[Rfam]
Nucleotides: 102
Stems, first nucleotide, its partner, number of pairs: 001027002006021002009018003040047002049102003058095002061092003
Number, partner (000 for none) and nucleotide at each position: 001027u002026u003000a004000a005000c006021g007020u008000a009018g010017g011016a012000g013000g014000u015000c016011u017010c018009c019000a020007g021006c022000c023000c024000g025000a026002g027001a028000g029000g030000g031000g032000u033000g034000g035000a036000g037000a038000a039000g040047u041046c042000a043000g044000c045000a046041g047040a048000g049102g050101c051100c052000a053000u054000a055000g056000u057000a058095c059094c060000g061092g062091u063090a064000c065000c066000g067000g068000u069000a070000u071000a072000a073000g074000u075000a076000u077000u078000g079000g080000g081000u082000a083000a084000c085000g086000c087000c088000a089000a090063u091062a092061u093000a094059g095058g096000g097000a098000a099000g100051g101050g102049c